[Rfam]
RNA sequence: GAGACUUUAGUUUAAUGGUAAAACAUAUGACUUUUAAUCAUUCUACUAUAGGUUCGAGUCCUAUAAGUCUUA
Numbered sequence: 001g002a003g004a005c006u007u008u009a010g011u012u013u014a015a016u017g018g019u020a021a022a023a024c025a026u027a028u029g030a031c032u033u034u035u036a037a038u039c040a041u042u043c044u045a046c047u048a049u050a051g052g053u054u055c056g057a058g059u060c061c062u063a064u065a066a067g068u069c070u071u072a
Stems, first nucleotide, its partner, number of pairs: 001071007010024004027041004048064005
RNA: tRNA